[Rfam]
RNA sequence: AAAAGGGGCUUCUGUGGUGAGUGGCACAUGUAGGGCAGCUUGAUUGCUCUGUGUGCGGAAUCGACACCAAGAGAUUUCAGGAGCAUAAUAUUUUGGUGCUUGGGCAACGGGUGAUAGUUGGUCCUGGAGCCCUG
Numbered sequence: 001a002a003a004a005g006g007g008g009c010u011u012c013u014g015u016g017g018u019g020a021g022u023g024g025c026a027c028a029u030g031u032a033g034g035g036c037a038g039c040u041u042g043a044u045u046g047c048u049c050u051g052u053g054u055g056c057g058g059a060a061u062c063g064a065c066a067c068c069a070a071g072a073g074a075u076u077u078c079a080g081g082a083g084c085a086u087a088a089u090a091u092u093u094u095g096g097u098g099c100u101u102g103g104g105c106a107a108c109g110g111g112u113g114a115u116a117g118u119u120g121g122u123c124c125u126g127g128a129g130c131c132c133u134g
Stems, first nucleotide, its partner, number of pairs: 008084005013026003017022001027055012057078006102132004108127001110125002113123003
A member of the RNA family "U11 spliceosomal RNA" from Molossus molossus, 134 nucleotides long. Its Rfam clan is "U1 clan". The source organism's lineage runs through Eukaryota, Bilateria, Deuterostomia, Mammalia and Molossus. The base pairs follow the family's consensus structure, which is taken from published work. By type it is a spliceosomal small nuclear RNA. It scores 90 bits against the family's covariance model.